[Rfam]
RNA sequence: CCGCGCUAAGCGGGGAGCUGGCGAUGCCCUGUACCUGCGAUCGCCUAGCAGGGCCUAGAUCCCCGCCCGAGGCGCGUACCGGGUUCGGUAGAGACCGGUUUGGGAGCGUUGAUGGUCUGGUCUCGGGCAAUGAGGCCCCGCGAACUGUGUCAGGGCCGGAAGGCAGCAGCACUAAGUGGGUUACCUCAUGUGCCAUCGGGGUAGCUGGACCGGAGCCGACGGCCGGGAGUUCGCCGAGUGCGAUCACGUCGACGGUGGGGUGCGCGG
Numbered sequence: 001c002c003g004c005g006c007u008a009a010g011c012g013g014g015g016a017g018c019u020g021g022c023g024a025u026g027c028c029c030u031g032u033a034c035c036u037g038c039g040a041u042c043g044c045c046u047a048g049c050a051g052g053g054c055c056u057a058g059a060u061c062c063c064c065g066c067c068c069g070a071g072g073c074g075c076g077u078a079c080c081g082g083g084u085u086c087g088g089u090a091g092a093g094a095c096c097g098g099u100u101u102g103g104g105a106g107c108g109u110u111g112a113u114g115g116u117c118u119g120g121u122c123u124c125g126g127g128c129a130a131u132g133a134g135g136c137c138c139c140g141c142g143a144a145c146u147g148u149g150u151c152a153g154g155g156c157c158g159g160a161a162g163g164c165a166g167c168a169g170c171a172c173u174a175a176g177u178g179g180g181u182u183a184c185c186u187c188a189u190g191u192g193c194c195a196u197c198g199g200g201g202u203a204g205c206u207g208g209a210c211c212g213g214a215g216c217c218g219a220c221g222g223c224c225g226g227g228a229g230u231u232c233g234c235c236g237a238g239u240g241c242g243a244u245c246a247c248g249u250c251g252a253c254g255g256u257g258g259g260g261u262g263c264g265c266g267g
Stems, first nucleotide, its partner, number of pairs: 001267006008056001010054002012030004017025001019023001034052005061260007071250004078244001080242002083239005091231002095226006103220001106216002113212009122200005127194001128190002131188005137180005147172004155164003
Shown here is a 267-nucleotide RNA sequence from Rubrobacter marinus, a member of the family "Bacterial large signal recognition particle RNA". NCBI's taxonomy places the organism under Bacteria, Bacillati, Rubrobacteria, Rubrobacterales, Rubrobacter. A search with the family's covariance model found it, with a score of 146 bits. From the family's description: The signal recognition particle (SRP) is a universally conserved ribonucleoprotein involved in the co-translational targeting of proteins to membranes. Its Rfam clan is "SRP clan".